The record is a 65-nucleotide RNA from Variovorax paradoxus, which matches "nhaA-I RNA" in Rfam. Rfam's curators put it in the seed alignment. It is annotated as a riboswitch. Rfam describes the family as follows. Acidobacteria, Alphaproteobacteria, Betaproteobacteria and Gammaproteobacteria, Verrucomicrobia, cand. division NC10. Taxonomically the source falls in Variovorax paradoxus (Bacteria, Pseudomonadati, Comamonadaceae, Variovorax).
[Rfam]
RNA sequence: GGGUGCGGGGCCGCUUGCUUCUUGUUGGCGGCGCCGCAGGUUCAUGCGAUGGUCGGGCCGCCACG
Numbered sequence: 001g002g003g004u005g006c007g008g009g010g011c012c013g014c015u016u017g018c019u020u021c022u023u024g025u026u027g028g029c030g031g032c033g034c035c036g037c038a039g040g041u042u043c044a045u046g047c048g049a050u051g052g053u054c055g056g057g058c059c060g061c062c063a064c065g
Stems, first nucleotide, its partner, number of pairs: 005037004010032006047065002050063004